[Rfam]
RNA sequence: CCGUGCUAGGUGGGGAGGUAGCGGUGCCUUGUUACUCGCAAUCCGCUAUAGCGAGGCUGAAUCCCUAUCCGAGGUGAGCAUUUUUGAGGUCUGCCGUAAGUAAGUGGUGUUGACGCUUUGGUCCCGCGCAACAGGAACCCGUGAACCCUGUCAGAUCCGGAAGGAAGCAGCAGUAAGCGGUCAUUCUUGUGUGCCGCGGGGUUGCCUGAGCCGAGCCACGAGCUUACGUAACGCUCAGGAAUGCCUCAUCGACGGUAGGUGCACGG
Numbered sequence: 001c002c003g004u005g006c007u008a009g010g011u012g013g014g015g016a017g018g019u020a021g022c023g024g025u026g027c028c029u030u031g032u033u034a035c036u037c038g039c040a041a042u043c044c045g046c047u048a049u050a051g052c053g054a055g056g057c058u059g060a061a062u063c064c065c066u067a068u069c070c071g072a073g074g075u076g077a078g079c080a081u082u083u084u085u086g087a088g089g090u091c092u093g094c095c096g097u098a099a100g101u102a103a104g105u106g107g108u109g110u111u112g113a114c115g116c117u118u119u120g121g122u123c124c125c126g127c128g129c130a131a132c133a134g135g136a137a138c139c140c141g142u143g144a145a146c147c148c149u150g151u152c153a154g155a156u157c158c159g160g161a162a163g164g165a166a167g168c169a170g171c172a173g174u175a176a177g178c179g180g181u182c183a184u185u186c187u188u189g190u191g192u193g194c195c196g197c198g199g200g201g202u203u204g205c206c207u208g209a210g211c212c213g214a215g216c217c218a219c220g221a222g223c224u225u226a227c228g229u230a231a232c233g234c235u236c237a238g239g240a241a242u243g244c245c246u247c248a249u250c251g252a253c254g255g256u257a258g259g260u261g262c263a264c265g266g
Stems, first nucleotide, its partner, number of pairs: 001266006009058003012030004017025001019023001035055005064259006073250005079243010092230002096227006104219005115211004120206003123200006129191002132189005139180004148173004156165003